[Rfam]
RNA sequence: GAAAUGAAAGGGCAAACCUGCUGAAAGGCAGGGACGCAAAGCCUGGAACCUAAAUCAGUUCUAAACUGAUAUGGUCGUCCGACUGCCAUA
Numbered sequence: 001g002a003a004a005u006g007a008a009a010g011g012g013c014a015a016a017c018c019u020g021c022u023g024a025a026a027g028g029c030a031g032g033g034a035c036g037c038a039a040a041g042c043c044u045g046g047a048a049c050c051u052a053a054a055u056c057a058g059u060u061c062u063a064a065a066c067u068g069a070u071a072u073g074g075u076c077g078u079c080c081g082a083c084u085g086c087c088a089u090a
Base pairs, nucleotide, nucleotide: 012037013036017032018031019030020029021028022027040084041083043081045080046079047078048075049074050073055069056068057067058066059065060064
Rfam assigns this 90-nucleotide RNA sequence from Sinanaerobacter chloroacetimidivorans to the family "c-di-GMP-I riboswitch aptamer". Rfam links the family to the GO term cyclic-di-GMP binding. For this family Rfam cites "Riboswitches in Eubacteria Sense the Second Messenger Cyclic Di-GMP" (Sudarsan et al., Science, 2008). Taxonomically the source falls in Sinanaerobacter (Bacteria, Clostridia, Peptostreptococcales, Anaerovoracaceae).